Clostridiales-1 RNA: a 148-nucleotide sequence from Dorea sp. AF36-15AT.
The family's consensus secondary structure is taken from published work.
The source organism's lineage runs through Bacteria, Bacillota, Clostridia, Lachnospirales and Dorea.
The match comes from Rfam's covariance-model search (82 bits).
By type it is a small RNA.
[Rfam]
RNA sequence: CGUUAAAAGAAGAGGAAAAGGUUAGAUACCGGGGUGCUUGCACACCAAGGUAUCUAACCUUUUUCGAUUCUCACGGAAAUGAGCAUGAAGCAACGUAGUUGCGGAAUGCGAAUUGCCGUGACAGAGCGCGAAGCGAUCUGCUUUAACG
Numbered sequence: 001c002g003u004u005a006a007a008a009g010a011a012g013a014g015g016a017a018a019a020g021g022u023u024a025g026a027u028a029c030c031g032g033g034g035u036g037c038u039u040g041c042a043c044a045c046c047a048a049g050g051u052a053u054c055u056a057a058c059c060u061u062u063u064u065c066g067a068u069u070c071u072c073a074c075g076g077a078a079a080u081g082a083g084c085a086u087g088a089a090g091c092a093a094c095g096u097a098g099u100u101g102c103g104g105a106a107u108g109c110g111a112a113u114u115g116c117c118g119u120g121a122c123a124g125a126g127c128g129c130g131a132a133g134c135g136a137u138c139u140g141c142u143u144u145a146a147c148g
Stems, first nucleotide, its partner, number of pairs: 001148007011068001014065001017062014032045001034043003073119004078114003083109004090102005123139003127135003